[Rfam]
RNA sequence: CCUUUGGAGAACUACACCAAACCAAAGUAGCUUUAAGCCAAAUGGAGUUCUGUGAAUAAGGAA
Numbered sequence: 001c002c003u004u005u006g007g008a009g010a011a012c013u014a015c016a017c018c019a020a021a022c023c024a025a026a027g028u029a030g031c032u033u034u035a036a037g038c039c040a041a042a043u044g045g046a047g048u049u050c051u052g053u054g055a056a057u058a059a060g061g062a063a
Stems, first nucleotide, its partner, number of pairs: 001061004009050005022045003030038003
A member of the RNA family "RAGATH-18 RNA" from Clostridium tarantellae, 63 nucleotides long.
The source organism's lineage runs through Bacteria, Bacillati, Clostridia, Eubacteriales and Clostridium.
The base pairs follow the family's consensus structure, which is taken from published work.
The family's RNA type in Rfam is small RNA.
From the family's description: Actinobacteria, Firmicutes, Fusobacteria, Thermotogae (1 example).